[Rfam]
RNA sequence: GUCGCUCCGUGCUGAGGCGUGGAACAAGCACCGAGCAAUACCUGACACCCUUGGGGAAUGGCUCUGCACUGCAUUUCUUCCCAGAGCCGC
Numbered sequence: 001g002u003c004g005c006u007c008c009g010u011g012c013u014g015a016g017g018c019g020u021g022g023a024a025c026a027a028g029c030a031c032c033g034a035g036c037a038a039u040a041c042c043u044g045a046c047a048c049c050c051u052u053g054g055g056g057a058a059u060g061g062c063u064c065u066g067c068a069c070u071g072c073a074u075u076u077c078u079u080c081c082c083a084g085a086g087c088c089g090c
Base pairs, nucleotide, nucleotide: 001090002089004087005086
A member of the RNA family "Small nucleolar RNA U83B" from Sagittarius serpentarius, 90 nucleotides long. Its family is annotated with RNA processing and nucleolus in the Gene Ontology. Lineage of the source: Eukaryota > Opisthokonta > Bilateria > Sauropsida > Sagittarius. Rfam classes the family as a C/D-box small nucleolar RNA. The base pairs follow the family's consensus structure. For this family Rfam cites "Characterisation of the U83 and U84 small nucleolar RNAs: two novel 2'-O-ribose methylation guide RNAs that lack complementarities to ribosomal RNAs" (Jady and Kiss, Nucleic Acids Res, 2000). A search with the family's covariance model found it, with a score of 38 bits.